RNA: Y RNA
Organism: Pongo abelii
RNA sequence: GGCUGGCCCAAAGGUACUGAGUUAUCUCAGUGGACUGUUUUCAGUCAGUUACAGAUGCAACUCCUUGUUCUACUCUUUCUCCCGUUCUCACUACUACACUUCACUAGUCUUAA
Numbered sequence: 001g002g003c004u005g006g007c008c009c010a011a012a013g014g015u016a017c018u019g020a021g022u023u024a025u026c027u028c029a030g031u032g033g034a035c036u037g038u039u040u041u042c043a044g045u046c047a048g049u050u051a052c053a054g055a056u057g058c059a060a061c062u063c064c065u066u067g068u069u070c071u072a073c074u075c076u077u078u079c080u081c082c083c084g085u086u087c088u089c090a091c092u093a094c095u096a097c098a099c100u101u102c103a104c105u106a107g108u109c110u111u112a113a
Base pairs, nucleotide, nucleotide: 001109002108003107004106005105006104010101011100014097015096016092018090019089020088021087044074047071048070
Dot-bracket structure: ((((((...((..(((.((((......................(..((.....................))..)............)))).)...))..))..))))))....